[Rfam]
RNA: Small nucleolar RNA Z279/snoR105/snoR108
RNA sequence: GGGAAAUGAUGAGCGGUAACGGCUUGCAAAUUUCACUGCGAGAGGGUGCCCGCCCCAACUAAGCCUGUUACGACAAUGGGGCACCCCAAUGAUUUACCAUCUGAUCCC
Numbered sequence: 001g002g003g004a005a006a007u008g009a010u011g012a013g014c015g016g017u018a019a020c021g022g023c024u025u026g027c028a029a030a031u032u033u034c035a036c037u038g039c040g041a042g043a044g045g046g047u048g049c050c051c052g053c054c055c056c057a058a059c060u061a062a063g064c065c066u067g068u069u070a071c072g073a074c075a076a077u078g079g080g081g082c083a084c085c086c087c088a089a090u091g092a093u094u095u096a097c098c099a100u101c102u103g104a105u106c107c108c
Stems, first nucleotide, its partner, number of pairs: 001108004015098004023042005044086007065079004